[Rfam]
RNA sequence: CAAAAAAUUUUAGACGGUGCCGCUAACAAGAGAUUGUUAGAUGGAAUAGGGGUUAAUUCAGGGAAGCCUUAACGGGUAGCGCCGAUGGUAAUCCUGAGCCAAGCCAAGUAAAUGGUUUAAGAGUAACUUGGAAGGUGCAGAGACUAAGAAGUGAGGAAACCAACCAAUAAGCUUCUACUAACGCCCCUCACCCGACUCCUAAAUUAAUUUGGGAAGGGUGGUGAGAUAGUCCUACUACUUUGGGAAACCAGAGG
Numbered sequence: 001c002a003a004a005a006a007a008u009u010u011u012a013g014a015c016g017g018u019g020c021c022g023c024u025a026a027c028a029a030g031a032g033a034u035u036g037u038u039a040g041a042u043g044g045a046a047u048a049g050g051g052g053u054u055a056a057u058u059c060a061g062g063g064a065a066g067c068c069u070u071a072a073c074g075g076g077u078a079g080c081g082c083c084g085a086u087g088g089u090a091a092u093c094c095u096g097a098g099c100c101a102a103g104c105c106a107a108g109u110a111a112a113u114g115g116u117u118u119a120a121g122a123g124u125a126a127c128u129u130g131g132a133a134g135g136u137g138c139a140g141a142g143a144c145u146a147a148g149a150a151g152u153g154a155g156g157a158a159a160c161c162a163a164c165c166a167a168u169a170a171g172c173u174u175c176u177a178c179u180a181a182c183g184c185c186c187c188u189c190a191c192c193c194g195a196c197u198c199c200u201a202a203a204u205u206a207a208u209u210u211g212g213g214a215a216g217g218g219u220g221g222u223g224a225g226a227u228a229g230u231c232c233u234a235c236u237a238c239u240u241u242g243g244g245a246a247a248c249c250a251g252a253g254g
Stems, first nucleotide, its partner, number of pairs: 005024001008022001011019002027036003048188004053183001058097006067088002070085001098136002104130001106128001111124001113122001140232001142231005191218003196213003239252005
The family of this 254-nucleotide RNA from Runella sp. SP2 is "Group I catalytic intron". The match comes from Rfam's covariance-model search (67 bits). Rfam 15.1 lists 5,602 matches to the family in 1,395 species.